[Rfam]
Nucleotides: 056
Base pairs, nucleotide, nucleotide: 003029004028005027006024007023008022009021010020011019037056039054040053041052042051043050
Number, partner (000 for none) and nucleotide at each position: 001000g002000g003029u004028u005027g006024g007023g008022c009021g010020a011019g012000u013000u014000u015000g016000g017000u018000a019011u020010u021009c022008g023007u024006u025000u026000u027005c028004a029003a030000g031000a032000u033000u034000u035000c036000a037056g038000u039054c040053u041052u042051c043050u044000g045000g046000g047000g048000u049000g050043g051042g052041a053040a054039g055000c056037u